[Rfam]
RNA sequence: UUUUAUACGCGGUUGCGUGAGUGAUAGUAGCGGCAUCCUUUUCUUUUUUUCUUAAAAAAAGAAAAGAUAGAGCGGAUAGCACGACCCUUG
Numbered sequence: 001u002u003u004u005a006u007a008c009g010c011g012g013u014u015g016c017g018u019g020a021g022u023g024a025u026a027g028u029a030g031c032g033g034c035a036u037c038c039u040u041u042u043c044u045u046u047u048u049u050u051c052u053u054a055a056a057a058a059a060a061g062a063a064a065a066g067a068u069a070g071a072g073c074g075g076a077u078a079g080c081a082c083g084a085c086c087c088u089u090g
Base pairs, nucleotide, nucleotide: 021082022081023080025078026077030073031072035068036067037066041063042062043061044060045059046058047057048056

A member of the RNA family "Flavo-1 RNA" from Flavobacterium aquatile, 90 nucleotides long. Taxonomically the source falls in Flavobacterium aquatile (Bacteria, Pseudomonadati, Flavobacteriales, Flavobacterium).